The family of this 55-nucleotide RNA is "Na+ riboswitch aptamer (DUF1646)". Gene Ontology terms of the family: regulation of gene expression and sodium ion binding. The sequence is in the family's curated seed alignment.
RNA sequence: GGUUGGGCAAACUUCGGUUUGUUUUCAAGUACUUUUGUUUCCGGGGGGGGAAGCU
Numbered sequence: 001g002g003u004u005g006g007g008c009a010a011a012c013u014u015c016g017g018u019u020u021g022u023u024u025u026c027a028a029g030u031a032c033u034u035u036u037g038u039u040u041c042c043g044g045g046g047g048g049g050g051a052a053g054c055u
Base pairs, nucleotide, nucleotide: 003028004027005026006023007022008021009020010019011018037054038053039052040051041050042049